[Rfam]
RNA sequence: UGGAUCGGGUAAUCGCUCGGAUAUAGUCCGAGAGGAAAGUCCAUGCUCACACAGUCUGCGAUGACUGUAGUGUUCGUGCUUGACGAAAUAAUAAGUCAAGGCAGCAUAAGCUGACGGCAGCGUCGAUUUCUAAGUAUUCGUAUAUGAAAUCGUGCUUGAAAGUGCCACAGAGACGAGUUUACAUAGAAAUAUGUAAAGUGGAACGCGGUAAACCCCUCGAGUGAGCAAUCCAAACAAGGUAGGAGCACUCUUUGCGAGGAAAUGAACUCAAAAAAGAGAUAUUACGAUAGUAAUAUAGACAGAUGAUUAUCACUGCUGUGUGAGUGUAAACUAGUGCACGUUCAACACGGUAGUACAGAACAUGGCUUACAGAG
Numbered sequence: 001u002g003g004a005u006c007g008g009g010u011a012a013u014c015g016c017u018c019g020g021a022u023a024u025a026g027u028c029c030g031a032g033a034g035g036a037a038a039g040u041c042c043a044u045g046c047u048c049a050c051a052c053a054g055u056c057u058g059c060g061a062u063g064a065c066u067g068u069a070g071u072g073u074u075c076g077u078g079c080u081u082g083a084c085g086a087a088a089u090a091a092u093a094a095g096u097c098a099a100g101g102c103a104g105c106a107u108a109a110g111c112u113g114a115c116g117g118c119a120g121c122g123u124c125g126a127u128u129u130c131u132a133a134g135u136a137u138u139c140g141u142a143u144a145u146g147a148a149a150u151c152g153u154g155c156u157u158g159a160a161a162g163u164g165c166c167a168c169a170g171a172g173a174c175g176a177g178u179u180u181a182c183a184u185a186g187a188a189a190u191a192u193g194u195a196a197a198g199u200g201g202a203a204c205g206c207g208g209u210a211a212a213c214c215c216c217u218c219g220a221g222u223g224a225g226c227a228a229u230c231c232a233a234a235c236a237a238g239g240u241a242g243g244a245g246c247a248c249u250c251u252u253u254g255c256g257a258g259g260a261a262a263u264g265a266a267c268u269c270a271a272a273a274a275a276g277a278g279a280u281a282u283u284a285c286g287a288u289a290g291u292a293a294u295a296u297a298g299a300c301a302g303a304u305g306a307u308u309a310u311c312a313c314u315g316c317u318g319u320g321u322g323a324g325u326g327u328a329a330a331c332u333a334g335u336g337c338a339c340g341u342u343c344a345a346c347a348c349g350g351u352a353g354u355a356c357a358g359a360a361c362a363u364g365g366c367u368u369a370c371a372g373a374g
Base pairs, nucleotide, nucleotide: 005373006372007370008311009310010309011308012307013306014305016032017031018030019029020028021027037368038367039366041365042364043363044362045361046225047224048223049222050221051068052067053066054065055064056063074220075219076218078216079100080099081098082097083096084095101115102113103112104111105110116215117214119156120155121154122153127149128148129147130146134143135142136141162213163212164209165208166207178197179196180195181194182193183192184191185190229244230243231242248278249277250276251275252274253273279296280295281294282293283292284291313353314352315351316350317349318348319347320346321345
Notes:
The family of this 374-nucleotide sequence from Phocicoccus pinnipedialis is "Bacterial RNase P class B". A search with the family's covariance model found it, with a score of 308 bits. The organism belongs to Phocicoccus, within Bacteria. Rfam links the family to the GO terms ribonuclease P activity, tRNA processing and dimeric ribonuclease P complex. Ribonuclease P (RNase P) is a ubiquitous endoribonuclease, found in archaea, bacteria and eukarya as well as chloroplasts and mitochondria. Its best characterised activity is the generation of mature 5'-ends of tRNAs by cleaving the 5'-leader elements of precursor-tRNAs. Cellular RNase Ps are ribonucleoproteins. RNA from bacterial RNase Ps retains its catalytic activity in the absence of the protein subunit, i.e. it is a ribozyme.